Shown here is a 45-nucleotide RNA sequence from Trichomalopsis sarcophagae, a member of the family "Histone 3' UTR stem-loop". By type it is a cis-regulatory element. Lineage of the source: Eukaryota > Opisthokonta > Metazoa > Chalcidoidea > Trichomalopsis. A reference for the family is DeJong et al. (2002), "NMR structure and dynamics of the RNA-binding site for the histone mRNA stem-loop binding protein", RNA.

RNA sequence: CAAUCGGCCCUUUUCAGGGCCACCAAUAUUUUUUGAACGUAAAAA
Dot-bracket structure: .....((((((....))))))........................
The match comes from Rfam's covariance-model search (37 bits).